[Rfam]
RNA sequence: AGUGGUGAUAGAGGUGCGAAAAUCAUCAGUAACCUGCUAGAGGAUGAACAGAUCCGACGACUGCAGGUGAAAGGGGAAUUCGCCGAAGUUCGACAUAAACUGUUUCUUAUGUCGAGCUGGUUUUGUAUUGAAAAAAUGCAGGAUUGUCAGAAUCUAAAUGAUUCUGGAGGGCUAUCUCACAU
Numbered sequence: 001a002g003u004g005g006u007g008a009u010a011g012a013g014g015u016g017c018g019a020a021a022a023u024c025a026u027c028a029g030u031a032a033c034c035u036g037c038u039a040g041a042g043g044a045u046g047a048a049c050a051g052a053u054c055c056g057a058c059g060a061c062u063g064c065a066g067g068u069g070a071a072a073g074g075g076g077a078a079u080u081c082g083c084c085g086a087a088g089u090u091c092g093a094c095a096u097a098a099a100c101u102g103u104u105u106c107u108u109a110u111g112u113c114g115a116g117c118u119g120g121u122u123u124u125g126u127a128u129u130g131a132a133a134a135a136a137u138g139c140a141g142g143a144u145u146g147u148c149a150g151a152a153u154c155u156a157a158a159u160g161a162u163u164c165u166g167g168a169g170g171g172c173u174a175u176c177u178c179a180c181a182u
Stems, first nucleotide, its partner, number of pairs: 007176005016083005023076002032068006087118012119145011147167007